[Rfam]
Nucleotides: 080
Stems, first nucleotide, its partner, number of pairs: 004075004010022004027070004
Number, partner (000 for none) and nucleotide at each position: 001000a002000c003000g004075g005074a006073g007072a008000c009000a010022u011021g012020g013019c014000a015000u016000g017000a018000a019013g020012c021011c022010a023000g024000a025000g026000a027070g028069u029068g030067a031000g032000a033000g034000a035000c036000a037000u038000u039000a040000a041000c042000u043000c044000a045000u046000u047000a048000g049000a050000c051000u052000g053000g054000a055000a056000c057000u058000u059000g060000a061000a062000c063000u064000g065000a066000u067030u068029c069028a070027c071000a072007u073006c074005u075004c076000a077000u078000u079000u080000u

Shown here is an 80-nucleotide RNA sequence, a member of the family "ctgf/hcs24 CAESAR". Rfam 15.1 lists 518 matches to the family in 508 species. It is annotated as a cis-regulatory element. The family's consensus secondary structure is taken from published work. Rfam's curators put it in the seed alignment. About the family: The 3' UTR of human connective tissue growth factor/hypertrophic chondrocyte specific 24 (ctgf/hcs24) mRNA has been shown to repress ctgf gene expression. Reference identified a minimal RNA element, predicted to form a stable secondary structure, which acts as a post-transcriptional cis-acting element of structure-anchored repression (CAESAR), probably through direct interactions with as yet unknown nuclear factors.